A member of the RNA family "L31-Gammaproteobacteria ribosomal protein leader" from Pseudidiomarina salinarum, 49 nucleotides long. Rfam classes the family as a cis-regulatory leader. It is one of the family's seed sequences. Clan: Ribosomal Protein L31 Leader clan. The literature on the family includes a 2020 paper in BMC Microbiol by Eckert and Weinberg, "Discovery of 20 novel ribosomal leader candidates in bacteria and archaea".

[Rfam]
RNA sequence: CGUGUGGUAUUCGGCAUAAGAUCGGAUGGCGAUGCGGCCCAAUUGAGGU
Numbered sequence: 001c002g003u004g005u006g007g008u009a010u011u012c013g014g015c016a017u018a019a020g021a022u023c024g025g026a027u028g029g030c031g032a033u034g035c036g037g038c039c040c041a042a043u044u045g046a047g048g049u
Stems, first nucleotide, its partner, number of pairs: 001036005007030002011025004015020001